[Rfam]
RNA sequence: UAGUAAGGAUGAACAGCUAAAAACGCGCCGUCCUGGCGCAACGCUGUUCCGACCUACAUCCUGUAGG
Numbered sequence: 001u002a003g004u005a006a007g008g009a010u011g012a013a014c015a016g017c018u019a020a021a022a023a024c025g026c027g028c029c030g031u032c033c034u035g036g037c038g039c040a041a042c043g044c045u046g047u048u049c050c051g052a053c054c055u056a057c058a059u060c061c062u063g064u065a066g067g
Base pairs, nucleotide, nucleotide: 011049012048013047014046015045016044017043025039026038027037028036029035053067054066055065056064057063
A member of the RNA family "Bacillaceae-1 RNA" from Bacillus sp. J14TS2, 67 nucleotides long. The family's RNA type in Rfam is small RNA.